[Rfam]
RNA sequence: GUAAGUCUUCGGGGUUGGGUGUAAUUCCCUACCGGCGGUAAAGUUUUCAACAUUGUUGAUGAAAACAAGCCCGCGAGCGUCAAAGUGAUAACUUUGAGUCAGCAGAUUUGGUGUAAUUCCAAAGCCGACGGUUAAAGUCCGGAUGAUAGAAGUUUACA
Number, nucleotide and partner (000 for none) at each position: 001g000002u000003a000004a155005g154006u000007c152008u151009u150010c149011g000012g000013g000014g000015u000016u000017g029018g028019g027020u000021g000022u000023a000024a000025u000026u000027c019028c018029c017030u000031a138032c137033c127034g126035g074036c073037g072038g071039u000040a000041a000042a000043g000044u000045u000046u000047u000048c000049a000050a000051c000052a000053u000054u000055g000056u000057u000058g000059a000060u000061g000062a000063a000064a000065a000066c000067a000068a000069g125070c124071c038072c037073g036074c035075g000076a000077g103078c102079g000080u000081c000082a000083a000084a000085g000086u000087g000088a000089u000090a000091a000092c000093u000094u000095u000096g000097a000098g000099u000100c000101a000102g078103c077104a000105g000106a000107u123108u122109u121110g120111g119112u000113g000114u000115a000116a000117u000118u000119c111120c110121a109122a108123a107124g070125c069126c034127g033128a000129c141130g140131g139132u000133u000134a000135a000136a000137g032138u031139c131140c130141g129142g000143a000144u000145g000146a000147u000148a000149g010150a009151a008152g007153u000154u005155u004156a000157c000158a000